[Rfam]
RNA sequence: UAUCUAUGGAGUCCAGCAACCAUUAAAAACGGGGCGUAACCGAAAAGCCAAAUGAGUAGGGGCAAAA
Numbered sequence: 001u002a003u004c005u006a007u008g009g010a011g012u013c014c015a016g017c018a019a020c021c022a023u024u025a026a027a028a029a030c031g032g033g034g035c036g037u038a039a040c041c042g043a044a045a046a047g048c049c050a051a052a053u054g055a056g057u058a059g060g061g062g063c064a065a066a067a
Stems, first nucleotide, its partner, number of pairs: 006023004033049003040061002
RNA: DUF805 RNA
Organism: Sediminibacterium sp. Gen4